Description
The family of this 94-nucleotide RNA from Zingiber officinale is "Small nucleolar RNA R44/J54/Z268 family". The family's RNA type in Rfam is C/D-box small nucleolar RNA. The family's consensus secondary structure was predicted with PFOLD.
RNA sequence: UUUGCAAGUGACGAUAAACAUAGACAGGGACAUCUGUACUCUUAGAGAGGUUGAUGAUUGGUUCUAUGGGAAAUGGGAAUCUCUCCGAUGCAAU
Numbered sequence: 001u002u003u004g005c006a007a008g009u010g011a012c013g014a015u016a017a018a019c020a021u022a023g024a025c026a027g028g029g030a031c032a033u034c035u036g037u038a039c040u041c042u043u044a045g046a047g048a049g050g051u052u053g054a055u056g057a058u059u060g061g062u063u064c065u066a067u068g069g070g071a072a073a074u075g076g077g078a079a080u081c082u083c084u085c086c087g088a089u090g091c092a093a094u
Base pairs, nucleotide, nucleotide: 002093003092004091005090006089